[Rfam]
RNA sequence: AGAUGAAGGUAGCAUGGUACUGUGCACGUAAACUGAGCUUUGCUGCGGAUUGACAUGUCUGCCCUCUCUGAGUUUUUUCUUUGAUUAGAGGGCCUGGUUGAUAUCCACACUC
Numbered sequence: 001a002g003a004u005g006a007a008g009g010u011a012g013c014a015u016g017g018u019a020c021u022g023u024g025c026a027c028g029u030a031a032a033c034u035g036a037g038c039u040u041u042g043c044u045g046c047g048g049a050u051u052g053a054c055a056u057g058u059c060u061g062c063c064c065u066c067u068c069u070g071a072g073u074u075u076u077u078u079c080u081u082u083g084a085u086u087a088g089a090g091g092g093c094c095u096g097g098u099u100g101a102u103a104u105c106c107a108c109a110c111u112c
Base pairs, nucleotide, nucleotide: 012025013024014023015022047095048094050092051091057085058084059083061079
RNA: Small nucleolar RNA snoR100
Organism: Brassica rapa